[Rfam]
RNA sequence: CUCAGUGAUCAUGGGUUGCCUGUGCCCUGGUCAUUGAUAGUACAGGGAGAGGAGUUACUGAAAGACAUUUUUCCAUGUUUGAAGGGCCCAGUUGUCCCUUCCAAACCCUGGAUCUUUCACACA
Numbered sequence: 001c002u003c004a005g006u007g008a009u010c011a012u013g014g015g016u017u018g019c020c021u022g023u024g025c026c027c028u029g030g031u032c033a034u035u036g037a038u039a040g041u042a043c044a045g046g047g048a049g050a051g052g053a054g055u056u057a058c059u060g061a062a063a064g065a066c067a068u069u070u071u072u073c074c075a076u077g078u079u080u081g082a083a084g085g086g087c088c089c090a091g092u093u094g095u096c097c098c099u100u101c102c103a104a105a106c107c108c109u110g111g112a113u114c115u116u117u118c119a120c121a122c123a
Base pairs, nucleotide, nucleotide: 001040002039004035005034006033007032008031009030010029011028013027014026015025016024059119060118061117062116063115064114065113077106078105079104080103081102082100083099084098085097086096

Rfam assigns this 123-nucleotide RNA from Lipotes vexillifer to the family "Small nucleolar RNA SNORA71". Lineage of the source: Eukaryota > Opisthokonta > Eumetazoa > Chordata > Lipotes. The members of this family belong to the H/ACA class of snoRNAs which bind a number of proteins (including dyskerin, Gar1p and Nop10p) to form snoRNP complexes. Rfam links the family to the GO terms nucleolus and RNA processing. Pairs were carried over by alignment from the consensus structure, which was predicted with PFOLD.